[Rfam]
RNA: mir-196 microRNA precursor family
Organism: Scyliorhinus torazame
RNA sequence: UGUGUGACUUAGGUAGUUUCAUGUUGUUGGGCUUCUGUUUGAUCGCAGUGACAGGAAACUGCCUGAAUUACUCC
Dot-bracket structure: ...((((.(((((((((((..((((((((.(............).))))))))..))))))))))).))))...